[Rfam]
RNA sequence: AACUAAAUCAAAGAUUUAGGAUCUCACUUAAGUUGACGAGGAUGGGGAGUAUCGAAUUCUUCGGCGGGUGCCCCACGGUAUCGCACUACCGUUAACAGUUAGUAAAUCUAUGAAGUGAUUUGUAGGACAACACUAACUUGGUGUUAAAA
Numbered sequence: 001a002a003c004u005a006a007a008u009c010a011a012a013g014a015u016u017u018a019g020g021a022u023c024u025c026a027c028u029u030a031a032g033u034u035g036a037c038g039a040g041g042a043u044g045g046g047g048a049g050u051a052u053c054g055a056a057u058u059c060u061u062c063g064g065c066g067g068g069u070g071c072c073c074c075a076c077g078g079u080a081u082c083g084c085a086c087u088a089c090c091g092u093u094a095a096c097a098g099u100u101a102g103u104a105a106a107u108c109u110a111u112g113a114a115g116u117g118a119u120u121u122g123u124a125g126g127a128c129a130a131c132a133c134u135a136a137c138u139u140g141g142u143g144u145u146a147a148a149a
Stems, first nucleotide, its partner, number of pairs: 001034004006029002043075005052064004076091005097138005108125007